Description:
The record is a 237-nucleotide RNA from filamentous cyanobacterium CCP2, which matches "Group II catalytic intron D1-D4-6" in Rfam. The pairing is the family consensus, mapped onto this sequence. NCBI's taxonomy places the organism under Bacteria, Bacillati, Cyanobacteriota.
[Rfam]
RNA sequence: AGAGUCCCAGUUCUGGAAGCCCUGGCAAGGCACCAGGUACUGAGUGUUGCGUCAGCGCUGGUAACACCGCUGGCGAAGCGUACACAAGGAGGUAAUGGGCUGCAAUGCGACAGCGUGAAGGGAUUGAGCCCCGUGAUGAGAAUAAAUUGUGGAUGCUGACGCUGUUAGUAAAGCGGAAGGCAACACCAAAGAAGCCAAUUGCCAGGGCUUCGGAGGGUCCACCGGGGUCAAAGACCG
Dot-bracket structure: ...........(((((..(((.[[[[..))).)))))..((..((((((((((((((.((....)).))))))))...)).)))).))....................................((.((((((...............(((((((((..((((........))))...)))....((...((((((....]]]].))))))...))))))))))))))).)......
Numbered sequence: 001a002g003a004g005u006c007c008c009a010g011u012u013c014u015g016g017a018a019g020c021c022c023u024g025g026c027a028a029g030g031c032a033c034c035a036g037g038u039a040c041u042g043a044g045u046g047u048u049g050c051g052u053c054a055g056c057g058c059u060g061g062u063a064a065c066a067c068c069g070c071u072g073g074c075g076a077a078g079c080g081u082a083c084a085c086a087a088g089g090a091g092g093u094a095a096u097g098g099g100c101u102g103c104a105a106u107g108c109g110a111c112a113g114c115g116u117g118a119a120g121g122g123a124u125u126g127a128g129c130c131c132c133g134u135g136a137u138g139a140g141a142a143u144a145a146a147u148u149g150u151g152g153a154u155g156c157u158g159a160c161g162c163u164g165u166u167a168g169u170a171a172a173g174c175g176g177a178a179g180g181c182a183a184c185a186c187c188a189a190a191g192a193a194g195c196c197a198a199u200u201g202c203c204a205g206g207g208c209u210u211c212g213g214a215g216g217g218u219c220c221a222c223c224g225g226g227g228u229c230a231a232a233g234a235c236c237g
Stems, first nucleotide, its partner, number of pairs: 012037005019031003023204004040088002044085004048080002050075008059066002125231001126229001128228006149222006155181003160175004186216002191211006